[Rfam]
The family of this 390-nucleotide RNA sequence from Marinithermus hydrothermalis is "Bacterial RNase P class A".
A search with the family's covariance model found it, with a score of 279 bits.
The family's consensus secondary structure is taken from published work.
Lineage of the source: Bacteria > Thermotogati > Deinococci > Thermales > Marinithermus hydrothermalis.
Rfam's curators write: Ribonuclease P (RNase P) is a ubiquitous endoribonuclease, found in archaea, bacteria and eukarya as well as chloroplasts and mitochondria.
RNA sequence: CGGGAAGGGGGCACGGUCGCGCCGCCUGCCCCCUUGGGGCUGAGGCGGUGAGGAAAGUCCGGGCACCGGAGGGCAGGGUGCCAGGUAACGCCUGGGCGCCGUAAGGCGACGGAAAGUGCCACAGAGAACAGACCGCCGAUCCGGCCUGGGGUUCCCCAGGUGUCAUGGAGGCAAGGGUGAAACGGUGGGGUAAGAGCCCACCAGCGUCCCGGGAGACCGGGGCGGCUCGGUAAACCCCACCCGGUGCAAGGCCAAGUAGGCAGGGAGGGCUUGCCCGGCCCGAGAGAACCUGCGGGUUGGCCGCUCGAGGCCGGUGGCGACACCGGUCCCAGAGAGAUGACCGUGGCCCCGCAAGGGGUACAGAACCCGGCUUACACCCCUUCCCAAGAC
Dot-bracket structure: .(((((((((((((((((.((((((((...............))))))))....[[[.[[[[[((((...[[[[.((((((((((.....)))))(((((....)))).)((...(((((............(((((...(((......................))).)))..)).......((((((.......)))))).(((((((((....)))))))).)..)))..)))))))))))))...((((......(((((.......(.(.(.]]]]).).)..))))).....))))......((((((((....))))))))..........)))))))....................]]]]]]]].).))))))))).....